This 121-nucleotide sequence from Paenibacillus montanisoli belongs to the Rfam family "pan motif". Rfam classes the family as a cis-regulatory element.
RNA sequence: UGGGUGGUAUCGUCCCGGACGAACCGCACCGGCAGAUGGAGCUUCAGUUGCGGAAAAGAAUAAUUUUUGAUGUGAGGCAGUGCGCAUUCUGCUCUGAGCCGUUUAGGACCGAGACAGAAGG
Numbered sequence: 001u002g003g004g005u006g007g008u009a010u011c012g013u014c015c016c017g018g019a020c021g022a023a024c025c026g027c028a029c030c031g032g033c034a035g036a037u038g039g040a041g042c043u044u045c046a047g048u049u050g051c052g053g054a055a056a057a058g059a060a061u062a063a064u065u066u067u068u069g070a071u072g073u074g075a076g077g078c079a080g081u082g083c084g085c086a087u088u089c090u091g092c093u094c095u096g097a098g099c100c101g102u103u104u105a106g107g108a109c110c111g112a113g114a115c116a117g118a119a120g121g
Base pairs, nucleotide, nucleotide: 001031002030003029004027005026006025007024008023010022011021012020013019014018089117090116091115092113093112094111096109099107100106